RNA: Plastid-psbA-4 3UTR RNA
RNA sequence: AAGUUGCAGGACUAAUACCAAAAUUCUUGUUCUGUCAAGAAAGCGGGUAUUAGUCCUGCAU
Numbered sequence: 001a002a003g004u005u006g007c008a009g010g011a012c013u014a015a016u017a018c019c020a021a022a023a024u025u026c027u028u029g030u031u032c033u034g035u036c037a038a039g040a041a042a043g044c045g046g047g048u049a050u051u052a053g054u055c056c057u058g059c060a061u
Stems, first nucleotide, its partner, number of pairs: 006059012024041006